[Rfam]
The record is a 70-nucleotide RNA from Macaca nemestrina, which matches "mir-30 microRNA precursor family" in Rfam. Gene Ontology terms of the family: RISC complex and gene silencing by miRNA. Taxonomically the source falls in Macaca (Eukaryota, Euteleostomi, Primates, Simiiformes). The base pairs follow the family's consensus structure, which was predicted with PFOLD. A reference for the family is Ambros (2001), "microRNAs: tiny regulators with great potential", Cell.
RNA sequence: GUUGUUGUAAACAUCCCCGACUGGAAGCUGUAAGACACAGCUAAGCUUUCAGUCAGAUGUUUGCUGCUAC
Numbered sequence: 001g002u003u004g005u006u007g008u009a010a011a012c013a014u015c016c017c018c019g020a021c022u023g024g025a026a027g028c029u030g031u032a033a034g035a036c037a038c039a040g041c042u043a044a045g046c047u048u049u050c051a052g053u054c055a056g057a058u059g060u061u062u063g064c065u066g067c068u069a070c
Stems, first nucleotide, its partner, number of pairs: 001070002005066001007064009020053010